[Rfam]
RNA sequence: UCCGGGGGAAGCUCAUCGACGAGGCCACGCACUGGGUGCGCGUCACCCCGGCCCCGCCUCGGGGAAGGUCUGAGAGAAGGGCAGCCCGCGGCUCCAGCAGAGCCCCGCCCGCGACGGGCGGGUGAGCCACCAGAAAGGGGGGGCGCCGUGGAGGGCCGGCCUGGGCAGGAGAAACCGAGCUGGGUUCUGUGGCAACGGAGCCCCCGGUGGAUGCUCGUGGCCCCGCGGUGCUUUGAGACAGACUCACGGCCGGCGAUUGUUGAGUCCAAUGGGUGAGGUGGGGCGCCGUCCUACAACCCAAUUCAGACUACUCUCCCCCGGA
Numbered sequence: 001u002c003c004g005g006g007g008g009a010a011g012c013u014c015a016u017c018g019a020c021g022a023g024g025c026c027a028c029g030c031a032c033u034g035g036g037u038g039c040g041c042g043u044c045a046c047c048c049c050g051g052c053c054c055c056g057c058c059u060c061g062g063g064g065a066a067g068g069u070c071u072g073a074g075a076g077a078a079g080g081g082c083a084g085c086c087c088g089c090g091g092c093u094c095c096a097g098c099a100g101a102g103c104c105c106c107g108c109c110c111g112c113g114a115c116g117g118g119c120g121g122g123u124g125a126g127c128c129a130c131c132a133g134a135a136a137g138g139g140g141g142g143g144c145g146c147c148g149u150g151g152a153g154g155g156c157c158g159g160c161c162u163g164g165g166c167a168g169g170a171g172a173a174a175c176c177g178a179g180c181u182g183g184g185u186u187c188u189g190u191g192g193c194a195a196c197g198g199a200g201c202c203c204c205c206g207g208u209g210g211a212u213g214c215u216c217g218u219g220g221c222c223c224c225g226c227g228g229u230g231c232u233u234u235g236a237g238a239c240a241g242a243c244u245c246a247c248g249g250c251c252g253g254c255g256a257u258u259g260u261u262g263a264g265u266c267c268a269a270u271g272g273g274u275g276a277g278g279u280g281g282g283g284c285g286c287c288g289u290c291c292u293a294c295a296a297c298c299c300a301a302u303u304c305a306g307a308c309u310a311c312u313c314u315c316c317c318c319c320g321g322a
Stems, first nucleotide, its partner, number of pairs: 001322004007316003012277006020061005034048005070306005080251003090104005105121006122247005128241001142232010278294007

Rfam assigns this 322-nucleotide RNA from Amazona collaria to the family "Nuclear RNase P". A search with the family's covariance model found it, with a score of 175 bits. On this family, see Frank and Pace, Annu Rev Biochem 1998: "Ribonuclease P: unity and diversity in a tRNA processing ribozyme". Lineage of the source: Eukaryota > Eumetazoa > Craniata > Euteleostomi > Amazona. By type it is a ribozyme.